[Rfam]
RNA sequence: GUGCAUAUGAUGGAAAAAAACUUAACCACCUGAAACUUCUGAUGUCGUCAAAGGAACCGCUGAUGCAC
Numbered sequence: 001g002u003g004c005a006u007a008u009g010a011u012g013g014a015a016a017a018a019a020a021c022u023u024a025a026c027c028a029c030c031u032g033a034a035a036c037u038u039c040u041g042a043u044g045u046c047g048u049c050a051a052a053g054g055a056a057c058c059g060c061u062g063a064u065g066c067a068c
Stems, first nucleotide, its partner, number of pairs: 001068005
Dot-bracket structure: (((((..........................................................)))))